Shown here is a 67-nucleotide RNA from Candidatus Manganitrophus noduliformans, a member of the family "Fluoride riboswitch aptamer (crcB RNA motif)". A search with the family's covariance model found it, with a score of 62 bits. The base pairs follow the family's consensus structure, which is taken from published work.
RNA sequence: UCAAAAAGCGGCGAUGGAGUUCGCCGGAACCGCCCUGACCGAACGGGCUGAUGACUCCUACUUGAGU
Dot-bracket structure: .........[[[[..((((((]]]]......((((.........))))....)))))).........
Numbered sequence: 001u002c003a004a005a006a007a008g009c010g011g012c013g014a015u016g017g018a019g020u021u022c023g024c025c026g027g028a029a030c031c032g033c034c035c036u037g038a039c040c041g042a043a044c045g046g047g048c049u050g051a052u053g054a055c056u057c058c059u060a061c062u063u064g065a066g067u
Stems, first nucleotide, its partner, number of pairs: 010025004016058006032048004